[Rfam]
RNA sequence: AAAAAGGGCUUCUGCCGUGAGUGGCACGGGGGGGCCGCGCGCCGCCCCCGCGGAAUCGACAUCAAGAGAUUUCGGAAGCACAAUUUUUGUGAGGGGGGUUCGCCGGUAACCGCCCGUUCCGGCGCCCCG
Numbered sequence: 001a002a003a004a005a006g007g008g009c010u011u012c013u014g015c016c017g018u019g020a021g022u023g024g025c026a027c028g029g030g031g032g033g034g035c036c037g038c039g040c041g042c043c044g045c046c047c048c049c050g051c052g053g054a055a056u057c058g059a060c061a062u063c064a065a066g067a068g069a070u071u072u073c074g075g076a077a078g079c080a081c082a083a084u085u086u087u088u089g090u091g092a093g094g095g096g097g098g099u100u101c102g103c104c105g106g107u108a109a110c111c112g113c114c115c116g117u118u119c120c121g122g123c124g125c126c127c128c129g
Base pairs, nucleotide, nucleotide: 008079009078010077011076012075013026014025015024016023017022027050028049029048030047031046032045034043036041051074052073053072054071055070056069057068097127098126100124102123103122104121105120106119108118109117110116
Record summary:
This 129-nucleotide RNA from Serilophus lunatus belongs to the Rfam family "U11 spliceosomal RNA". Lineage of the source: Eukaryota > Opisthokonta > Craniata > Amniota > Serilophus.